This 216-nucleotide RNA belongs to the Rfam family "Streptomyces RNA 1601".
Rfam's curators write: Identified by deep sequencing of transcriptome at the end of exponential growth phase. Appears longer on northern blot than sequencing transcript. Streptomyces specific.
[Rfam]
RNA sequence: AACGACCGGUCGGACACGUAUGCCUCACCGCUAACGUUCCGGCCCACAAGUGGAGGCUUUCGAACUCCCACCUGACCGCCCCUCGGGCGGCGGGUCACCGGUCAGACGGCCCCGUCCCGGCGACGGCGGUCCGUCCGAACAGCGCGCCCCGUGACUUCACGGCGGUCGCUCCGGUAGUUCGAGGAGCCCCGCCUGUGAUCGUCCGGGGCAUUUUUC
Numbered sequence: 001a002a003c004g005a006c007c008g009g010u011c012g013g014a015c016a017c018g019u020a021u022g023c024c025u026c027a028c029c030g031c032u033a034a035c036g037u038u039c040c041g042g043c044c045c046a047c048a049a050g051u052g053g054a055g056g057c058u059u060u061c062g063a064a065c066u067c068c069c070a071c072c073u074g075a076c077c078g079c080c081c082c083u084c085g086g087g088c089g090g091c092g093g094g095u096c097a098c099c100g101g102u103c104a105g106a107c108g109g110c111c112c113c114g115u116c117c118c119g120g121c122g123a124c125g126g127c128g129g130u131c132c133g134u135c136c137g138a139a140c141a142g143c144g145c146g147c148c149c150c151g152u153g154a155c156u157u158c159a160c161g162g163c164g165g166u167c168g169c170u171c172c173g174g175u176a177g178u179u180c181g182a183g184g185a186g187c188c189c190c191g192c193c194u195g196u197g198a199u200c201g202u203c204c205g206g207g208g209c210a211u212u213u214u215u216c
Stems, first nucleotide, its partner, number of pairs: 004103006012040002041096005047074002050071004054066002076090006105135005112126005146209006152201003158197003161193005168187005
The literature on the family includes a 2011 paper in RNA Biol by Vockenhuber et al., "Deep sequencing-based identification of small non-coding RNAs in Streptomyces coelicolor".